A member of the RNA family "Small nucleolar RNA SNORD89" from Ptilonorhynchus violaceus, 116 nucleotides long. About the family: snoRNA HBII-289 belongs to the family of C/D snoRNAs. On this family, see Huttenhofer et al., EMBO J 2001: "RNomics: an experimental approach that identifies 201 candidates for novel, small, non-messenger RNAs in mouse". The organism belongs to Ptilonorhynchus, within Eukaryota. The family's RNA type in Rfam is C/D-box small nucleolar RNA.
[Rfam]
RNA sequence: GCUGAGGAAUGAUGACAAUAAAAGGCCGAAUUGCAGUGCCUCCAGCAAACAGUUAGCUCUCCUUGGAAGCACAAUGACAAAAAUCGUCCGAAGCGAAUCACUAGUCUGACCUCAGU
Numbered sequence: 001g002c003u004g005a006g007g008a009a010u011g012a013u014g015a016c017a018a019u020a021a022a023a024g025g026c027c028g029a030a031u032u033g034c035a036g037u038g039c040c041u042c043c044a045g046c047a048a049a050c051a052g053u054u055a056g057c058u059c060u061c062c063u064u065g066g067a068a069g070c071a072c073a074a075u076g077a078c079a080a081a082a083a084u085c086g087u088c089c090g091a092a093g094c095g096a097a098u099c100a101c102u103a104g105u106c107u108g109a110c111c112u113c114a115g116u
Stems, first nucleotide, its partner, number of pairs: 001116007014106003025034002035102004041096002043093001046090001052072002058066002073087001076084001
Dot-bracket structure: (((((((......(((........((......))((((..(((..(.....((....((.....))....))(..(.......)..)..)..).))..)))).)))...)))))))